A member of the RNA family "Small nucleolar RNA SNORA25" from Vicugna pacos, 128 nucleotides long. Pairs were carried over by alignment from the consensus structure, which was predicted with RNAfold. From the family's description: ACA25 is a member of the H/ACA class of snoRNA that guide the sites of modification of uridines to pseudouridines.

RNA sequence: AGGUCAUUUCAAAGAGGGCUGAUGGGACCAAAGCCCAGGAGCUCUUAACACUGCGAUCAAUGAUUGAGUUCUUUGUUGGUUGUAAUAGUCACUCAAUAGUGCUAUGUUUUCCUAAUGGAGAUAGAAGA
Numbered sequence: 001a002g003g004u005c006a007u008u009u010c011a012a013a014g015a016g017g018g019c020u021g022a023u024g025g026g027a028c029c030a031a032a033g034c035c036c037a038g039g040a041g042c043u044c045u046u047a048a049c050a051c052u053g054c055g056a057u058c059a060a061u062g063a064u065u066g067a068g069u070u071c072u073u074u075g076u077u078g079g080u081u082g083u084a085a086u087a088g089u090c091a092c093u094c095a096a097u098a099g100u101g102c103u104a105u106g107u108u109u110u111c112c113u114a115a116u117g118g119a120g121a122u123a124g125a126a127g128a
Stems, first nucleotide, its partner, number of pairs: 002058004007053001014046007023038001026036001070121005078112002085105004090101004
Overview:
Rfam links the family to the GO terms nucleolus and RNA processing. Rfam classes the family as an H/ACA-box small nucleolar RNA. Taxonomically the source falls in Vicugna (Eukaryota, Chordata, Teleostomi, Tetrapoda). The family has 30 seed sequences and 1,129 matches in Rfam 15.1.